[Rfam]
RNA sequence: CUUAAACGCUUCUAGGGUUCCAGCCUAUGCUUUGAGUGUGGGUGCUCGGUCCGAGAGGAGCAAGCUGCUCUGGAUUGAGUGACUCCGUCAUAUCUAAGCAAUCUGCCAGCUACACGGCGGGAUAAAAGCCCGGGAGGA
Numbered sequence: 001c002u003u004a005a006a007c008g009c010u011u012c013u014a015g016g017g018u019u020c021c022a023g024c025c026u027a028u029g030c031u032u033u034g035a036g037u038g039u040g041g042g043u044g045c046u047c048g049g050u051c052c053g054a055g056a057g058g059a060g061c062a063a064g065c066u067g068c069u070c071u072g073g074a075u076u077g078a079g080u081g082a083c084u085c086c087g088u089c090a091u092a093u094c095u096a097a098g099c100a101a102u103c104u105g106c107c108a109g110c111u112a113c114a115c116g117g118c119g120g121g122a123u124a125a126a127a128g129c130c131c132g133g134g135a136g137g138a
Base pairs, nucleotide, nucleotide: 008061009060010059011058012057015052016051020049021048022046023043024042025041026040027039028038029037030036063111064110065109066108067107113133115136119131120130121129
Dot-bracket structure: .......(((((..((...(((((((((((.....))))))))..).)).))....))))).(((((.......................................))))).(.[...(((.......))).)..]..

This 138-nucleotide sequence from Stenomitos frigidus belongs to the Rfam family "Guanidine-I riboswitch aptamer". From the family's description: This family represents a conserved RNA structure found upstream of the ykkC and yxkD genes in Bacillus subtilis and related genes in other bacteria.